[Rfam]
RNA sequence: GGCGGAGGAAGCUCAUCAGCGGGGCCACGUGCUGAGUGCGUGUCACUCUUCGGCCCCUGGGAAGGUCUGAGACUUGGGCCUCCCGCGGCCCUAACCGGGCUCUCCCCGAGCGGGGAGGUGAGUUCCCAGAGAGCAGGGCUCUACGCUUGGGCAGACUGGGCAGGAGAAGCCCCGAGUCGGGGCGGAUGCCUCCCUCGCCGGAGCGGAUGCCUCCCUCGCCGGAGCUUGGAACAGACUCACGGCCAGCAGUGCGAGUUCAAUGGCUGAGGUGAGGCACCUCCCGGGCCUCAUAACCCAAUUCAGACUACUCUCCCCCGCC
Dot-bracket structure: ((((..(((..[[[[.[...((((.........(((((.....))))).....)))).........(((((.....((((......(((((.....)))))((((((....))))))(((((((.............(((((..............................................................................)))))........)))))))))))..................].]]]](((((((.........))))))).......))))).......)))..))))
Annotation:
The record is a 319-nucleotide sequence from Mus musculus, which matches "Nuclear RNase P" in Rfam. Ribonuclease P (RNase P) is a ubiquitous endoribonuclease, found in archaea, bacteria and eukarya as well as chloroplasts and mitochondria. Rfam links the family to the GO terms ribonuclease P activity, ribonuclease P complex and tRNA processing. By type it is a ribozyme.